[Rfam]
RNA sequence: UGGAAGGUGCUCCUUGAACGGCUCGGACAGGUCCCUCGACAAGACCCAUCCUCGCUGGUCAGGAGCACUUUUCAGUUGAUCAACACUCGCUCACGCCGCUCCGCCGUGAAAG
Numbered sequence: 001u002g003g004a005a006g007g008u009g010c011u012c013c014u015u016g017a018a019c020g021g022c023u024c025g026g027a028c029a030g031g032u033c034c035c036u037c038g039a040c041a042a043g044a045c046c047c048a049u050c051c052u053c054g055c056u057g058g059u060c061a062g063g064a065g066c067a068c069u070u071u072u073c074a075g076u077u078g079a080u081c082a083a084c085a086c087u088c089g090c091u092c093a094c095g096c097c098g099c100u101c102c103g104c105c106g107u108g109a110a111a112g
Stems, first nucleotide, its partner, number of pairs: 002073012015061003019057004025051003030046001032044002100110001102108002